[Rfam]
RNA sequence: CCCCGCAUACUGCGCGGGGCCUGUGUUUUGCAUUUGUAACCAAGGGGUCUGCUCGUG
Numbered sequence: 001c002c003c004c005g006c007a008u009a010c011u012g013c014g015c016g017g018g019g020c021c022u023g024u025g026u027u028u029u030g031c032a033u034u035u036g037u038a039a040c041c042a043a044g045g046g047g048u049c050u051g052c053u054c055g056u057g
Stems, first nucleotide, its partner, number of pairs: 001019006008012001